[Rfam]
RNA sequence: CCCCGGGCGACUGGGGGUCUGAAGGAAGCCCGAGGCAAAGCGCUGGCCUGACGAACAGGAAGCGGAUGAGGCAUCGUAUCGGGGUGAGGCAGCCAAAACAGCCAAAGCCCAAUACUUGCACGGACCGAUGCGGCGUAUAUCCGACAGGCAUAAGCGUGAAGGUGGGUGCGU
Numbered sequence: 001c002c003c004c005g006g007g008c009g010a011c012u013g014g015g016g017g018u019c020u021g022a023a024g025g026a027a028g029c030c031c032g033a034g035g036c037a038a039a040g041c042g043c044u045g046g047c048c049u050g051a052c053g054a055a056c057a058g059g060a061a062g063c064g065g066a067u068g069a070g071g072c073a074u075c076g077u078a079u080c081g082g083g084g085u086g087a088g089g090c091a092g093c094c095a096a097a098a099c100a101g102c103c104a105a106a107g108c109c110c111a112a113u114a115c116u117u118g119c120a121c122g123g124a125c126c127g128a129u130g131c132g133g134c135g136u137a138u139a140u141c142c143g144a145c146a147g148g149c150a151u152a153a154g155c156g157u158g159a160a161g162g163u164g165g166g167u168g169c170g171u
Stems, first nucleotide, its partner, number of pairs: 001016006028171002031168002035163002040157005046149005063143004071136002075132007082110004088103003
RNA: Group II catalytic intron D1-D4-3